[Rfam]
RNA sequence: GGCCUUUGUGUUGCCCAUUCAUUCCGGUCCAGAAUGGAUGUGGUGUCAAAAAAGGCAAACAGGAAUUCUUGCUCAAACUGCUUUCGGGAGCUGGUUGUGUACCUUCCUCCUCUCUCUGUUUUUGCAAGGACAAAA
Numbered sequence: 001g002g003c004c005u006u007u008g009u010g011u012u013g014c015c016c017a018u019u020c021a022u023u024c025c026g027g028u029c030c031a032g033a034a035u036g037g038a039u040g041u042g043g044u045g046u047c048a049a050a051a052a053a054g055g056c057a058a059a060c061a062g063g064a065a066u067u068c069u070u071g072c073u074c075a076a077a078c079u080g081c082u083u084u085c086g087g088g089a090g091c092u093g094g095u096u097g098u099g100u101a102c103c104u105u106c107c108u109c110c111u112c113u114c115u116c117u118g119u120u121u122u123u124g125c126a127a128g129g130a131c132a133a134a135a
Base pairs, nucleotide, nucleotide: 002056003055004054005053006052007051009048010047012045013044014043015042016040017039018038019037020036021035022034023033068128069127070126071125074124075123076122077121085118086117087116088115089113090112093108094107

The record is a 135-nucleotide sequence from Erpornis zantholeuca, which matches "Small nucleolar RNA SNORA13" in Rfam.
Rfam's curators write: ACA13 is a member of the H/ACA class of snoRNA that guide the sites of modification of uridines to pseudouridines.
Rfam classes the family as an H/ACA-box small nucleolar RNA.
The source organism's lineage runs through Eukaryota, Gnathostomata, Teleostomi, Archelosauria and Erpornis.
The base pairs follow the family's consensus structure, which was predicted with CMfinder.